[Rfam]
RNA sequence: UUUGGCGUCGGUGUAGCGCUUCGGGUCGUCCCCGAACUCGGCGAGCACCCGGGCAGCGAGGACCGUGCCCCAGGCCGGGCGUGG
Numbered sequence: 001u002u003u004g005g006c007g008u009c010g011g012u013g014u015a016g017c018g019c020u021u022c023g024g025g026u027c028g029u030c031c032c033c034g035a036a037c038u039c040g041g042c043g044a045g046c047a048c049c050c051g052g053g054c055a056g057c058g059a060g061g062a063c064c065g066u067g068c069c070c071c072a073g074g075c076c077g078g079g080c081g082u083g084g
Base pairs, nucleotide, nucleotide: 008044009043010042012040013039018038020036021035022034023033024032025031056080057079060076061075063074064073
Shown here is an 84-nucleotide sequence from Parafrankia sp. EUN1f, a member of the family "Actinobacteria sRNA Ms_AS-4". The family's RNA type in Rfam is small RNA. The pairing is the family consensus, mapped onto this sequence. For this family Rfam cites "Identification of small RNAs in Mycobacterium smegmatis using heterologous Hfq" (Li et al., RNA, 2013).